[Rfam]
Rfam assigns this 150-nucleotide RNA from Aeromicrobium flavum to the family "c-di-AMP riboswitch aptamer (ydaO/yuaA leader)". Its family is annotated with cyclic-di-AMP binding and regulation of gene expression in the Gene Ontology.

RNA sequence: ACGGUGACACCGCCGAAUCGUCAGGCCGUCCGCGGCCGAUGACGAGCCGGGGAACCAAGGUACGUGGGGUGAAUCGACCGGCUCGCCGGUCGUAGGGCAGCCAAGGCCCGAAUCCGUCAGCUCACCUGGUAGGCGUCUAGGUACUCAGGA
Numbered sequence: 001a002c003g004g005u006g007a008c009a010c011c012g013c014c015g016a017a018u019c020g021u022c023a024g025g026c027c028g029u030c031c032g033c034g035g036c037c038g039a040u041g042a043c044g045a046g047c048c049g050g051g052g053a054a055c056c057a058a059g060g061u062a063c064g065u066g067g068g069g070u071g072a073a074u075c076g077a078c079c080g081g082c083u084c085g086c087c088g089g090u091c092g093u094a095g096g097g098c099a100g101c102c103a104a105g106g107c108c109c110g111a112a113u114c115c116g117u118c119a120g121c122u123c124a125c126c127u128g129g130u131a132g133g134c135g136u137c138u139a140g141g142u143a144c145u146c147a148g149g150a
Base pairs, nucleotide, nucleotide: 011135012134013133014132018045019044020043021042022041023040046130047129048128049127050126051125056066057065067115068114069113075092076091077090078089095109096108097107098106